[Rfam]
RNA sequence: AUCGAUCAAGGCAAACCCGUCGUGAGACGGGGACGCAAAGCCAUGGGUCUUGCCGUCCGCUUCGUCGGACGCCCAGAUCGCCAGGCCGCCGGGC
Numbered sequence: 001a002u003c004g005a006u007c008a009a010g011g012c013a014a015a016c017c018c019g020u021c022g023u024g025a026g027a028c029g030g031g032g033a034c035g036c037a038a039a040g041c042c043a044u045g046g047g048u049c050u051u052g053c054c055g056u057c058c059g060c061u062u063c064g065u066c067g068g069a070c071g072c073c074c075a076g077a078u079c080g081c082c083a084g085g086c087c088g089c090c091g092g093g094c
Base pairs, nucleotide, nucleotide: 003091004090011036012035016031017030018029019028020027021026034080040086041085042084044083045082046081047078048077049076
A member of the RNA family "c-di-GMP-I-GGC riboswitch aptamer" from Botrimarina colliarenosi, 94 nucleotides long.
It scores 68 bits against the family's covariance model.
Pairs were carried over by alignment from the consensus structure, which is taken from published work.